RNA sequence: CCCGCGGCUAGACGGAAAGACCCCGUGAACCUUUACUAUAGCUUGACAGUGAACAUUGCUCCUACAUGUGUAGGAUAGGUGGGAGGCUUUGAAACUUUGUCGCCAGAUAGAGUGGAGCCAAUCUUGAAAUACCACCCUUGUAUGCGUGAUGUUCUAACCUAGGGCCCUUAUCGGGCUUGGGGACACUGUCUGGUGGGUAGUUUGACUGGGGCGGUCUCCUCCCAAAGAGUAACGGAGGAGCACGAAGGUUGGCUAAGUACGGUCGGACAUCGUACGGUUAGUGCAAUGGCAUAAGCCAGCUUAACUGCGAGACAGACACGUCGAGCAGGUGCGAAAGCAGGUCAUAGUGAUCCGGUGGUUCUGUAUGGAAGGGCCAUCGCUCAACGGAUAAAAGGUACUCCGGGGAUAACAGGCUGAUACCGCCCAAGAGUUCAUAUCGACGGCGGUGUUUGGCACCUCGAUGUCGGCUCAUCACAUCCUGGGGCUGAAGUCGGUCCCAAGGGUAUGGCUGUUCGCCAUUUAAAGUGGUACGCGAGCUGGGUUUAGAACGUCGUGAGACAGUUCGGUCCCUAUCUGCCGUGGGCGUU
Numbered sequence: 001c002c003c004g005c006g007g008c009u010a011g012a013c014g015g016a017a018a019g020a021c022c023c024c025g026u027g028a029a030c031c032u033u034u035a036c037u038a039u040a041g042c043u044u045g046a047c048a049g050u051g052a053a054c055a056u057u058g059c060u061c062c063u064a065c066a067u068g069u070g071u072a073g074g075a076u077a078g079g080u081g082g083g084a085g086g087c088u089u090u091g092a093a094a095c096u097u098u099g100u101c102g103c104c105a106g107a108u109a110g111a112g113u114g115g116a117g118c119c120a121a122u123c124u125u126g127a128a129a130u131a132c133c134a135c136c137c138u139u140g141u142a143u144g145c146g147u148g149a150u151g152u153u154c155u156a157a158c159c160u161a162g163g164g165c166c167c168u169u170a171u172c173g174g175g176c177u178u179g180g181g182g183a184c185a186c187u188g189u190c191u192g193g194u195g196g197g198u199a200g201u202u203u204g205a206c207u208g209g210g211g212c213g214g215u216c217u218c219c220u221c222c223c224a225a226a227g228a229g230u231a232a233c234g235g236a237g238g239a240g241c242a243c244g245a246a247g248g249u250u251g252g253c254u255a256a257g258u259a260c261g262g263u264c265g266g267a268c269a270u271c272g273u274a275c276g277g278u279u280a281g282u283g284c285a286a287u288g289g290c291a292u293a294a295g296c297c298a299g300c301u302u303a304a305c306u307g308c309g310a311g312a313c314a315g316a317c318a319c320g321u322c323g324a325g326c327a328g329g330u331g332c333g334a335a336a337g338c339a340g341g342u343c344a345u346a347g348u349g350a351u352c353c354g355g356u357g358g359u360u361c362u363g364u365a366u367g368g369a370a371g372g373g374c375c376a377u378c379g380c381u382c383a384a385c386g387g388a389u390a391a392a393a394g395g396u397a398c399u400c401c402g403g404g405g406a407u408a409a410c411a412g413g414c415u416g417a418u419a420c421c422g423c424c425c426a427a428g429a430g431u432u433c434a435u436a437u438c439g440a441c442g443g444c445g446g447u448g449u450u451u452g453g454c455a456c457c458u459c460g461a462u463g464u465c466g467g468c469u470c471a472u473c474a475c476a477u478c479c480u481g482g483g484g485c486u487g488a489a490g491u492c493g494g495u496c497c498c499a500a501g502g503g504u505a506u507g508g509c510u511g512u513u514c515g516c517c518a519u520u521u522a523a524a525g526u527g528g529u530a531c532g533c534g535a536g537c538u539g540g541g542u543u544u545a546g547a548a549c550g551u552c553g554u555g556a557g558a559c560a561g562u563u564c565g566g567u568c569c570c571u572a573u574c575u576g577c578c579g580u581g582g583g584c585g586u587u
Base pairs, nucleotide, nucleotide: 001583002582003581004580005579006578007577008576010575011574012573014570015569022404023403024402025401027400028399029396030395031394032393033392035201036200037199038198042193043192045190046189047188048187051154052153053152054151055150056149057148058147059146061144063142064141065140066139068137078136079135080134081133082132085119086118087117094113095112096111097110098109099108100107101106158181159180160179162178163177164176165175166174167173204216205215206214207213217239218238219237220236221235222234240385242342243341248300249299250298251297252296253295254280255279257275258274259273260272261271262270281290282289305328306327307326308325311322312321313320330339331338332337353379354378355377356376357375358374359373361372362371413454414453415452417451418448419447420446421445422444423443424442428438429437465540466538467537468536469535470532471529472528473527474526475525478503479502481498482497483496484495485494486493505519506518507517508516509515546564547563548562549561550559551558552557
RNA: Bacterial large subunit ribosomal RNA, nucleotides 2017 to 2603